Rfam assigns this 60-nucleotide RNA sequence from Smithornis capensis to the family "U7 small nuclear RNA".
Pairs were carried over by alignment from the consensus structure, which was predicted with PFOLD.
Rfam's curators write: Animal histone pre-mRNAs are spliced by a different mechanism than nuclear pre-mRNAs and self-splicing introns. This processing involves the U7 snRNP, which contains only one RNA species: U7. The 5' end of U7 RNA is thought to base-pair to a conserved spacer element downstream of the cleavage site in histone pre-mRNA. This family contains a number of annotated U7 pseudogenes.
It scores 65 bits against the family's covariance model.
[Rfam]
RNA sequence: AAGUGAUUUCAGCUCUUUUAGAAUUUGUCCAGCAGGUUUCCCGCUCUGCGGGAAACCGCC
Numbered sequence: 001a002a003g004u005g006a007u008u009u010c011a012g013c014u015c016u017u018u019u020a021g022a023a024u025u026u027g028u029c030c031a032g033c034a035g036g037u038u039u040c041c042c043g044c045u046c047u048g049c050g051g052g053a054a055a056c057c058g059c060c
Base pairs, nucleotide, nucleotide: 035057036056037055038054039053040052041051042050043049044048